[Rfam]
RNA sequence: CCUCCCGUGACGAUGAAUUUCGGUGACUUUCGUUCUUCUGAGCUCGCUGAAGCCACACGUUGCAGUCUGAGGAGG
Numbered sequence: 001c002c003u004c005c006c007g008u009g010a011c012g013a014u015g016a017a018u019u020u021c022g023g024u025g026a027c028u029u030u031c032g033u034u035c036u037u038c039u040g041a042g043c044u045c046g047c048u049g050a051a052g053c054c055a056c057a058c059g060u061u062g063c064a065g066u067c068u069g070a071g072g073a074g075g
Base pairs, nucleotide, nucleotide: 001075002074003073005071